Shown here is a 136-nucleotide sequence from Bacillus sp. FJAT-50079, a member of the family "FMN riboswitch aptamer (RFN element)".
RNA sequence: AUUCAUCUUCGGGGCGCGGUGAAAUUCCCGACCGGCGGUAAUGUAAGCUUUUUGCUUCUAAGCCCGCGAGCCUUUAUAGGCAGGAUUUGGUGCGAUUCCAAAGCCGACAGUAUAGUCUGGAUGGGAGAAGGUGAAG
Numbered sequence: 001a002u003u004c005a006u007c008u009u010c011g012g013g014g015c016g017c018g019g020u021g022a023a024a025u026u027c028c029c030g031a032c033c034g035g036c037g038g039u040a041a042u043g044u045a046a047g048c049u050u051u052u053u054g055c056u057u058c059u060a061a062g063c064c065c066g067c068g069a070g071c072c073u074u075u076a077u078a079g080g081c082a083g084g085a086u087u088u089g090g091u092g093c094g095a096u097u098c099c100a101a102a103g104c105c106g107a108c109a110g111u112a113u114a115g116u117c118u119g120g121a122u123g124g125g126a127g128a129a130g131g132u133g134a135a136g
Stems, first nucleotide, its partner, number of pairs: 003134008018028002031116002033106002035067004062104002072080001086102005108119003